[Rfam]
RNA sequence: GGAGAGGUUCUAGUUAUACCCUCUAUAAAAAACUAA
Number, nucleotide and partner (000 for none) at each position: 001g000002g000003a024004g023005a022006g021007g020008u000009u000010c000011u035012a034013g000014u000015u000016a000017u000018a000019c000020c007021c006022u005023c004024u003025a000026u000027a000028a000029a000030a000031a000032a000033c000034u012035a011036a000